[Rfam]
RNA sequence: CCUGCAUGAUGAUCUCCUGUUUGUGCCAUCGUGUCUGGGCCACUGAUGCUCUGUGAUGGAACCGAGGAUCUGAACGGG
Dot-bracket structure: ((((......................................................................))))

Shown here is a 78-nucleotide RNA from Terrapene triunguis, a member of the family "Small nucleolar RNA SNORD66". The source organism's lineage runs through Eukaryota, Metazoa, Sauropsida, Emydidae and Terrapene. By type it is a C/D-box small nucleolar RNA. From the family's description: snoRNA HBII-142 is part of the C/D family of snoRNAs. It is the human orthologue of the mouse MBII-142 snoRNA and is predicted to guide 2'O-ribose methylation of small 18S rRNA at residue C1272. The base pairs follow the family's consensus structure, which was predicted with RNAalifold.